[Rfam]
RNA sequence: CAUACAGUGAGGCAUGGUAACUCCACCACCGUUGGCGUAUUUAUUUAAGAGCCAGCGGUUGAGGAGUUUCCCUACCUCGCUAAU
Numbered sequence: 001c002a003u004a005c006a007g008u009g010a011g012g013c014a015u016g017g018u019a020a021c022u023c024c025a026c027c028a029c030c031g032u033u034g035g036c037g038u039a040u041u042u043a044u045u046u047a048a049g050a051g052c053c054a055g056c057g058g059u060u061g062a063g064g065a066g067u068u069u070c071c072c073u074a075c076c077u078c079g080c081u082a083a084u
Stems, first nucleotide, its partner, number of pairs: 003082001006081007016071002019068005026061001029058008
The family of this 84-nucleotide RNA sequence from Ceutorhynchus assimilis is "mir-2765 microRNA precursor family". The organism belongs to Ceutorhynchus, within Eukaryota. The match comes from Rfam's covariance-model search (60 bits).